[Rfam]
RNA sequence: CCCUAGCCUGGGGGGCCGCAAGGAGUGCCAGGACGCGGAUUAGUCGGGCAGUGCCGCGUUUCAGAAAACUCCGAACGCC
Numbered sequence: 001c002c003c004u005a006g007c008c009u010g011g012g013g014g015g016c017c018g019c020a021a022g023g024a025g026u027g028c029c030a031g032g033a034c035g036c037g038g039a040u041u042a043g044u045c046g047g048g049c050a051g052u053g054c055c056g057c058g059u060u061u062c063a064g065a066a067a068a069c070u071c072c073g074a075a076c077g078c079c
Stems, first nucleotide, its partner, number of pairs: 001015004007032005016023002034058005044074004
This 79-nucleotide RNA sequence from Alicycliphilus denitrificans belongs to the Rfam family "Proteo-phage-1 RNA".